A member of the RNA family "Burkholderia RNA 7 (anti-hemB)" from Rhizobacter sp. Root404, 89 nucleotides long.
From the family's description: This RNA motif was identified by computational search in b-proteobacteria Burkholderia. Co-purified with Hfq, expression confirmed by Northern blot.
The family's consensus secondary structure is taken from published work.

RNA sequence: UCCCUGCUUUUCCUCCCUGAGCAGGUGCCCGACCGUGAUGACAGCGUGAAGGCAUUUCAAGCCCCGGCCCCGUGCCGGGGCUUUUCUUU
Numbered sequence: 001u002c003c004c005u006g007c008u009u010u011u012c013c014u015c016c017c018u019g020a021g022c023a024g025g026u027g028c029c030c031g032a033c034c035g036u037g038a039u040g041a042c043a044g045c046g047u048g049a050a051g052g053c054a055u056u057u058c059a060a061g062c063c064c065c066g067g068c069c070c071c072g073u074g075c076c077g078g079g080g081c082u083u084u085u086c087u088u089u
Stems, first nucleotide, its partner, number of pairs: 003025006027053003061081008

The organism belongs to Rhizobacter, within Bacteria.